Selenocysteine transfer RNA: an 86-nucleotide RNA sequence from Trichuris suis. Rfam links the family to the GO term triplet codon-amino acid adaptor activity. The source organism's lineage runs through Eukaryota, Bilateria, Protostomia, Nematoda and Trichuris. The base pairs follow the family's consensus structure, which is taken from published work.

RNA sequence: GCUCGGAUGAGCUUCGAUGGUUCGGGGUGCAGACUUCAAAUCUGUAGCUGAUUCGCGUCAGAGUGGUUCGAUUCCACCUUCCGAGC
Numbered sequence: 001g002c003u004c005g006g007a008u009g010a011g012c013u014u015c016g017a018u019g020g021u022u023c024g025g026g027g028u029g030c031a032g033a034c035u036u037c038a039a040a041u042c043u044g045u046a047g048c049u050g051a052u053u054c055g056c057g058u059c060a061g062a063g064u065g066g067u068u069c070g071a072u073u074c075c076a077c078c079u080u081c082c083g084a085g086c
Base pairs, nucleotide, nucleotide: 001086002085003084004083005082006081007080009078012027013026014025015024016023017022028046029045030044031043032042033041048061049060050059051058052057063077064076065075066074
Dot-bracket structure: (((((((.(..((((((....))))))((((((.......)))))).(((((....))))).((((.......))))).)))))))